[Rfam]
RNA: MIR396 microRNA precursor family
Organism: Nyssa sinensis
RNA sequence: UGUCAUGCUUUUCCACAGCUUUCUUGAACUUCAUCUACUGUUUUGUCUCUCAAGAUCAACCGCAGAAGUUCAAGAAAGCUGUGGGAAAACAUGGCGA
Numbered sequence: 001u002g003u004c005a006u007g008c009u010u011u012u013c014c015a016c017a018g019c020u021u022u023c024u025u026g027a028a029c030u031u032c033a034u035c036u037a038c039u040g041u042u043u044u045g046u047c048u049c050u051c052a053a054g055a056u057c058a059a060c061c062g063c064a065g066a067a068g069u070u071c072a073a074g075a076a077a078g079c080u081g082u083g084g085g086a087a088a089a090c091a092u093g094g095c096g097a
Stems, first nucleotide, its partner, number of pairs: 003094005013084003017080006024073004029068004